[Rfam]
RNA: mir-71 microRNA precursor family
Organism: Rhodnius prolixus
RNA sequence: UCCGCAUGAAAGACAAGGUAGUGAGAUGUAGAUCCUACUUACCCAUCUCACUACCCAUGUCUUUCAUACGGGC
Dot-bracket structure: .......((((((((.((.(((((((((...............))))))))).))..))))))))........